[Rfam]
RNA: skipping-rope RNA
RNA sequence: GAAGAUAGAGGUUGAGAAUCUGUCACCAACGCACCGUUGUCUAAACGGGUCAGAAAUGCAGGAGAACCGACAGUCCUGCCUAUCUUA
Numbered sequence: 001g002a003a004g005a006u007a008g009a010g011g012u013u014g015a016g017a018a019u020c021u022g023u024c025a026c027c028a029a030c031g032c033a034c035c036g037u038u039g040u041c042u043a044a045a046c047g048g049g050u051c052a053g054a055a056a057u058g059c060a061g062g063a064g065a066a067c068c069g070a071c072a073g074u075c076c077u078g079c080c081u082a083u084c085u086u087a
Stems, first nucleotide, its partner, number of pairs: 002086007011030004020073005032053001033050003058079005